[Rfam]
RNA: mir-3689 microRNA precursor family
RNA sequence: GGGAGGCGUGAUCCUGUGCUUCCUAGGAGGUGGGAUACCAUGUUUCCUGGGAGGUGUGAUACCGUGUUUCCU
Number, nucleotide and partner (000 for none) at each position: 001g071002g070003g069004a068005g067006g000007c000008g000009u000010g000011a000012u000013c000014c000015u058016g057017u056018g055019c000020u053021u052022c051023c050024u049025a048026g047027g046028a045029g044030g000031u042032g041033g000034g039035a000036u000037a000038c000039c034040a000041u032042g031043u000044u029045u028046c027047c026048u025049g024050g023051g022052a021053g020054g000055u018056g017057u016058g015059a000060u000061a000062c000063c000064g000065u000066g000067u005068u004069u003070c002071c001072u000